[Rfam]
RNA sequence: GAAAGCUUUGCUCUGUACAGUUGAAAACGAUGAAGCAUUGUGCAGAGC
Dot-bracket structure: ..........(((((.(((...................))).))))).

A member of the RNA family "uup RNA", 48 nucleotides long. Rfam's curators put it in the seed alignment. The family's consensus secondary structure is taken from published work. The family's RNA type in Rfam is cis-regulatory element.